[Rfam]
RNA: Glycine riboswitch aptamer
RNA sequence: CAGCACCGCGCGGGAGAGACUGACAUCUGUUUCGUCAGCGCCGAAGGAGCAACCACCCCGGAAACUCUCAGGCAUCGAGGACCGCACGGUACGC
Number, nucleotide and partner (000 for none) at each position: 001c000002a000003g000004c000005a000006c089007c088008g087009c000010g085011c084012g083013g082014g000015a000016g000017a000018g000019a000020c038021u037022g036023a035024c000025a000026u000027c000028u000029g000030u000031u000032u000033c000034g000035u023036c022037a021038g020039c000040g073041c072042c071043g069044a068045a000046g000047g067048a066049g065050c000051a000052a000053c061054c060055a000056c000057c000058c000059c000060g054061g053062a000063a000064a000065c049066u048067c047068u044069c043070a000071g042072g041073c040074a000075u000076c000077g000078a000079g000080g000081a000082c013083c012084g011085c010086a000087c008088g007089g006090u000091a000092c000093g000094c000